[Rfam]
RNA sequence: GCCCAAAUUCGCACGUGCCUGUGGCCGCGUGCCGGUCGUUGAUGUUCCAGGGACAAGAGGCCCGGACCAUCAGCGGGGCAACCGGCAGCCGGAGUUAACCGGCGCACCCUGUGUCUCACACGGGGGACGUGGCUUGAAGCAACGACGUAGAGGGCUUUU
Numbered sequence: 001g002c003c004c005a006a007a008u009u010c011g012c013a014c015g016u017g018c019c020u021g022u023g024g025c026c027g028c029g030u031g032c033c034g035g036u037c038g039u040u041g042a043u044g045u046u047c048c049a050g051g052g053a054c055a056a057g058a059g060g061c062c063c064g065g066a067c068c069a070u071c072a073g074c075g076g077g078g079c080a081a082c083c084g085g086c087a088g089c090c091g092g093a094g095u096u097a098a099c100c101g102g103c104g105c106a107c108c109c110u111g112u113g114u115c116u117c118a119c120a121c122g123g124g125g126g127a128c129g130u131g132g133c134u135u136g137a138a139g140c141a142a143c144g145a146c147g148u149a150g151a152g153g154g155c156u157u158u159u
Stems, first nucleotide, its partner, number of pairs: 001155004009145003016141003023134008031086005037078001039076003089102004103126001109123006

Alphaproteobacterial sRNA ar45: a 159-nucleotide RNA from Siculibacillus lacustris. NCBI's taxonomy places the organism under Bacteria, Pseudomonadota, Alphaproteobacteria, Hyphomicrobiales, Siculibacillus. The base pairs follow the family's consensus structure. By type it is a small RNA.